[Rfam]
Nucleotides: 152
Stems, first nucleotide, its partner, number of pairs: 002055005008049001014043005020037004069144005082131005087124004096116005
Number, partner (000 for none) and nucleotide at each position: 001000c002055g003054a004053u005052g006051g007000c008049u009000g010000u011000u012000c013000a014043u015042u016041u017040c018039a019000c020037u021036g022035c023034u024000u025000a026000g027000a028000g029000u030000c031000u032000u033000a034023g035022g036021u037020g038000g039018u040017g041016g042015g043014a044000u045000u046000u047000u048000a049008g050000u051006c052005c053004a054003u055002c056000a057000u058000a059000u060000a061000u062000c063000u064000a065000a066000g067000c068000u069144g070143a071142c072141u073140u074000g075000u076000c077000u078000u079000c080000a081000c082131u083130c084129a085128g086127g087124g088123c089122a090121c091000c092000a093000c094000g095000g096116g097115g098114a099113u100112g101000g102000g103000u104000u105000u106000g107000u108000u109000g110000g111000c112100u113099g114098u115097c116096c117000g118000u119000u120000a121090g122089u123088g124087c125000c126000u127086u128085c129084u130083g131082a132000g133000u134000u135000u136000u137000g138000c139000g140073g141072a142071g143070u144069c145000a146000a147000a148000c149000a150000a151000u152000u
The family of this 152-nucleotide sequence from Phocoena sinus is "Small nucleolar RNA SNORA79". From the family's description: ACA65 (SNORA79) is a member of the H/ACA class of snoRNAs that guide the sites of modification of uridines to pseudouridines. This snoRNA was identified by computational screening and its expression in mouse experimentally verified by Northern blot and primer extension analysis. Gene Ontology terms of the family: nucleolus and RNA processing. Pairs were carried over by alignment from the consensus structure, which was predicted with RNAalifold. The organism belongs to Phocoena, within Eukaryota.